Annotation:
The family of this 109-nucleotide RNA sequence from Corynebacterium aquatimens is "mraW RNA". The family's consensus secondary structure is taken from published work. The match comes from Rfam's covariance-model search (61 bits). The organism belongs to Corynebacterium, within Bacteria. Rfam classes the family as a cis-regulatory element.
RNA sequence: AGCAGGAGAGUGUGUAGGAACUCUGCUCGGGGCGUGAGUUGUUCUGGUGUACUUCCCCGAUACCAGAAUGACCGCCUCGGGCAGGGCUCUAUACGCUCCCCGCUUUUAG
Numbered sequence: 001a002g003c004a005g006g007a008g009a010g011u012g013u014g015u016a017g018g019a020a021c022u023c024u025g026c027u028c029g030g031g032g033c034g035u036g037a038g039u040u041g042u043u044c045u046g047g048u049g050u051a052c053u054u055c056c057c058c059g060a061u062a063c064c065a066g067a068a069u070g071a072c073c074g075c076c077u078c079g080g081g082c083a084g085g086g087c088u089c090u091a092u093a094c095g096c097u098c099c100c101c102g103c104u105u106u107u108a109g
Stems, first nucleotide, its partner, number of pairs: 010096007018089002021086014038072013